Rfam assigns this 72-nucleotide RNA sequence from Muribaculaceae bacterium Isolate-114 to the family "Bacteroidetes FopS (family of paralogous sRNAs)". The base pairs follow the family's consensus structure, which is taken from published work. For this family Rfam cites "The global RNA-binding protein RbpB is a regulator of polysaccharide utilization in Bacteroides thetaiotaomicron" (Ruttiger et al., Nat Commun, 2025). The family has 12 seed sequences and 822 matches in Rfam 15.1. Taxonomically the source falls in Muribaculaceae (Bacteria, Bacteroidota, Bacteroidia, Bacteroidales). By type it is a small RNA. Rfam links the family to the GO term sRNA-mediated gene silencing. About the family: The RNA-binding protein RbpB and BTncRNA_FopS sRNA are involved in the post-transcription regulation of polysaccharide utilisation loci (PUL).

[Rfam]
RNA sequence: GAGUUUUUCAUGGUAUUAGAUUUUAAGGUUAACGUGAGAUUGGUUGUCGGGACGACAAUCAAUUUUUUUUUG
Numbered sequence: 001g002a003g004u005u006u007u008u009c010a011u012g013g014u015a016u017u018a019g020a021u022u023u024u025a026a027g028g029u030u031a032a033c034g035u036g037a038g039a040u041u042g043g044u045u046g047u048c049g050g051g052a053c054g055a056c057a058a059u060c061a062a063u064u065u066u067u068u069u070u071u072g
Stems, first nucleotide, its partner, number of pairs: 042060007